This 71-nucleotide sequence from Orthoflavivirus denguei belongs to the Rfam family "Dengue virus SLA". Its family is annotated with viral RNA genome replication in the Gene Ontology. Rfam describes the family as follows. Flavivirus stem-loop A (SLA) is a secondary structure present in the 5 prime untranslated (5'-UTR) region of viruses of the genus Flavivirus. The family's RNA type in Rfam is cis-regulatory element. The family is grouped with related families in Rfam's "Flavivirus 5' UTR clan". The family's consensus secondary structure is taken from published work. The organism belongs to Dengue virus, within Viruses.
[Rfam]
RNA sequence: AGUUGUUAGUCUGUGUGGACCGACAAGGACAGUUCCAAAUCGGAAGCUUGCUUAACACAGUUCUAACAGUU
Numbered sequence: 001a002g003u004u005g006u007u008a009g010u011c012u013g014u015g016u017g018g019a020c021c022g023a024c025a026a027g028g029a030c031a032g033u034u035c036c037a038a039a040u041c042g043g044a045a046g047c048u049u050g051c052u053u054a055a056c057a058c059a060g061u062u063c064u065a066a067c068a069g070u071u
Stems, first nucleotide, its partner, number of pairs: 001071009011060006020043004027036003044053003